[Rfam]
RNA: Bacterial RNase P class A
RNA sequence: CAUGUUGGCUGGGCGGCCGCGCGGCGCGCAAGGCGUCUCGAGGAACGUCCGGGCUCCGUAGAGGACGGUGGUGGGUAACACCCACCCGGGGUGACCCGCGGGAAAGCGCAACAGAAAGUAAACCGCCGCAAGGUAAGGGUGAAAGGGUGGUGUAAGAGACCACCGCGUGUCGGGUGACCGGCAUGGCACGGCAAGCCCCACCGGGAGCAAGAUCAGACAGUGCCCCGUCAGGCUCCUCGUCUAGGGCACGGGUGGAUUGCUAGAGUGCGUCAGUAAUGGCGCACGUAGAUGGAUGGUCGCCGCCGCGCAAGCGGUACAGAACCCGGCGUAUAGGCCAAGAUGACAG
Numbered sequence: 001c002a003u004g005u006u007g008g009c010u011g012g013g014c015g016g017c018c019g020c021g022c023g024g025c026g027c028g029c030a031a032g033g034c035g036u037c038u039c040g041a042g043g044a045a046c047g048u049c050c051g052g053g054c055u056c057c058g059u060a061g062a063g064g065a066c067g068g069u070g071g072u073g074g075g076u077a078a079c080a081c082c083c084a085c086c087c088g089g090g091g092u093g094a095c096c097c098g099c100g101g102g103a104a105a106g107c108g109c110a111a112c113a114g115a116a117a118g119u120a121a122a123c124c125g126c127c128g129c130a131a132g133g134u135a136a137g138g139g140u141g142a143a144a145g146g147g148u149g150g151u152g153u154a155a156g157a158g159a160c161c162a163c164c165g166c167g168u169g170u171c172g173g174g175u176g177a178c179c180g181g182c183a184u185g186g187c188a189c190g191g192c193a194a195g196c197c198c199c200a201c202c203g204g205g206a207g208c209a210a211g212a213u214c215a216g217a218c219a220g221u222g223c224c225c226c227g228u229c230a231g232g233c234u235c236c237u238c239g240u241c242u243a244g245g246g247c248a249c250g251g252g253u254g255g256a257u258u259g260c261u262a263g264a265g266u267g268c269g270u271c272a273g274u275a276a277u278g279g280c281g282c283a284c285g286u287a288g289a290u291g292g293a294u295g296g297u298c299g300c301c302g303c304c305g306c307g308c309a310a311g312c313g314g315u316a317c318a319g320a321a322c323c324c325g326g327c328g329u330a331u332a333g334g335c336c337a338a339g340a341u342g343a344c345a346g
Base pairs, nucleotide, nucleotide: 001342002341003340005338006337007336008335009334010333011331012301013300014299015298016297017296018295020040021039023037024036025035026034027033045329046328047327049326050325051324052323053322054207055206056205057204061238062237063236064235066203067202068201069200070199071085072084073083074082075081086100087098088097089096090095101198102197106196107195108192109191123138124137125134126133127132146164147163148162149161150160151159165187166185167184168183169182170181171180172179173178211258212257213256214255220249221248222247223246224245225244230242231241232240233239265284266283267282268281269280270279271278272277